Notes: Bacterial RNase P class A: a 377-nucleotide RNA sequence from Azoarcus taiwanensis. Pairs were carried over by alignment from the consensus structure, which is taken from published work.
RNA sequence: GAAGUUCGCCAGGCAAUCGCUGCGCACCUCGUCGUGCGUGGAGGAAAGUCCGGGCCCCGCAGAGCAGGAUGCCGGCUAACGGCCGGGCGCCGUGAGGCGACGGAAAGUGCAACAGAGAGCAGACCGCCGACGAUCAGCGAUGAUCGGGCAAGGGUGAAAGGGUGAGGUAAGAGCUCACCGCGGGACUGGUAACAGGACCGGCACGGCAAACCCCAUCCGGGGCAAGGCCAAAUAGGGGAGCAUUGGCGUGGCUCGCGUCGCUCCCGGGUAGGCCGCUUGAGCGUCGUGGUGACAUGACGCCCAGAUGAAUGAUUGCCCCGCGUCGACGCGUCCGCGUCGGUGCGCGACAGAACCCGGCUUAUCGGCGAACUUCCUCU
Dot-bracket structure: ((((((((((((((((((.((((((((......))))))))....[[[.[[[[[((((...[[[[.((((((((((.....)))))(((((....)))).)((...((((.............(((((..((((((....)))))))))..)).......((((((.......))))))((((..(((....)))..))).)...))..)))))))))))))...((((......((((((...(((((.]]]]))))))))))).....))))......((((((((....))))))))..........)))))))...................................]]]]]]]].).))))))))))....

About this RNA: NCBI's taxonomy places the organism under Bacteria, Pseudomonadati, Pseudomonadota, Zoogloeaceae, Azoarcus.